[Rfam]
RNA sequence: AGAGGAAGAGGGCAAACUUGUCGAAAGGCAAGGACGCAAAGCUACGGGCCUAAUGCGAUUUCGCCAAGGCCGCCGGGCUGCUAUA
Numbered sequence: 001a002g003a004g005g006a007a008g009a010g011g012g013c014a015a016a017c018u019u020g021u022c023g024a025a026a027g028g029c030a031a032g033g034a035c036g037c038a039a040a041g042c043u044a045c046g047g048g049c050c051u052a053a054u055g056c057g058a059u060u061u062c063g064c065c066a067a068g069g070c071c072g073c074c075g076g077g078c079u080g081c082u083a084u085a
Base pairs, nucleotide, nucleotide: 012037013036017032018031019030020029021028022027040079041078042077043076045075046074047073048070049069050068055064056063057062
Notes:
Shown here is an 85-nucleotide sequence from Xylanibacillus composti, a member of the family "c-di-GMP-I riboswitch aptamer". Pairs were carried over by alignment from the consensus structure, which is taken from published work. Taxonomically the source falls in Xylanibacillus (Bacteria, Bacillati, Caryophanales, Paenibacillaceae).